[Rfam]
RNA sequence: GUUAAGGGGUUGCGAACACCCCGUGAGGCUUAGGCCUAAGUUUCGCAUCCAACAACCUUAAAUUCUUACAAAGGAAGGAUGCGUUAUG
Number, nucleotide and partner (000 for none) at each position: 001g000002u000003u000004a000005a000006g022007g021008g020009g019010u018011u000012g000013c000014g000015a000016a000017c000018a010019c009020c008021c007022c006023g000024u000025g000026a000027g000028g000029c000030u000031u000032a000033g000034g000035c000036c000037u000038a000039a000040g000041u000042u000043u000044c000045g082046c081047a080048u079049c078050c077051a000052a000053c000054a000055a000056c000057c000058u000059u000060a000061a000062a000063u000064u000065c000066u000067u000068a000069c000070a000071a000072a000073g000074g000075a000076a000077g050078g049079a048080u047081g046082c045083g000084u000085u000086a000087u000088g000

A member of the RNA family "chrB-a RNA" from gamma proteobacterium IMCC1989, 88 nucleotides long.